This 136-nucleotide RNA from Heterocephalus glaber belongs to the Rfam family "Small nucleolar RNA SNORA42/SNORA80 family". The literature on the family includes a 2006 paper in RNA by Schattner et al., "A computational screen for mammalian pseudouridylation guide H/ACA RNAs". The family's RNA type in Rfam is H/ACA-box small nucleolar RNA. Rfam describes the family as follows. The members of this family belong to the H/ACA class of snoRNAs that guide the sites of modification of uridines to pseudouridines. Human ACA42 (SNORA42) was cloned from HeLa cells by immunoprecipitation with anti-GAR1 antibody. Its is predicted to guide the pseudouridylation of residues U109 and U572 of 18S rRNA. ACA42 shares the same host gene with ACA26, ACA46, ACA50.
RNA sequence: GCAUGGUAGUGGAUUUAUGAUGGGUCCUUCUGCGUGGGCCUCUCAUAGUGUAACCAUGCGAGAGCAAGGUGCAGCCUCGAACCAUUGCCCAGCCUCGCUGCUGUGGGCUGCGAGCACUGAAGGAGGUCGCACAGAU
Dot-bracket structure: (((((.((......((((((.(((((.........)).))).))))))..)).).))))............(.((((.....((...(.((((((.........))))))...)...))....)))).).......
Rfam 15.1 lists 1,535 matches to the family in 183 species. The source organism's lineage runs through Eukaryota, Teleostomi, Euteleostomi, Glires and Heterocephalus.